About this RNA:
A member of the RNA family "Clostridiales-1 RNA" from Firmicutes bacterium AF22-6AC, 217 nucleotides long. The family's RNA type in Rfam is small RNA. A search with the family's covariance model found it, with a score of 107 bits.

[Rfam]
RNA sequence: UGAUGCCAGGGUCAAAAGGUCUAAACCCACAUGAGCUUGCUCAUAAGUGGGUGAAAGACCUUAUGACCCGCCCCGAUAUGAGCAUAAAAGUGGGAUGAUAAUCCCACGAUAUGCGAAUAGAGGGUAGGGUGCUAUGUGCCAGUGGCACAUGUUUAGCACGGACCGAAGCGGAGCGUAGAAGUGAGAGUGCGUAGCACGGAACAAUCCGUAGGCAUCA
Numbered sequence: 001u002g003a004u005g006c007c008a009g010g011g012u013c014a015a016a017a018g019g020u021c022u023a024a025a026c027c028c029a030c031a032u033g034a035g036c037u038u039g040c041u042c043a044u045a046a047g048u049g050g051g052u053g054a055a056a057g058a059c060c061u062u063a064u065g066a067c068c069c070g071c072c073c074c075g076a077u078a079u080g081a082g083c084a085u086a087a088a089a090g091u092g093g094g095a096u097g098a099u100a101a102u103c104c105c106a107c108g109a110u111a112u113g114c115g116a117a118u119a120g121a122g123g124g125u126a127g128g129g130u131g132c133u134a135u136g137u138g139c140c141a142g143u144g145g146c147a148c149a150u151g152u153u154u155a156g157c158a159c160g161g162a163c164c165g166a167a168g169c170g171g172a173g174c175g176u177a178g179a180a181g182u183g184a185g186a187g188u189g190c191g192u193a194g195c196a197c198g199g200a201a202c203a204a205u206c207c208g209u210a211g212g213c214a215u216c217a
Stems, first nucleotide, its partner, number of pairs: 001217007010068004016062007026051005031044005072124003077119003082114004090107007127207004135203003142197003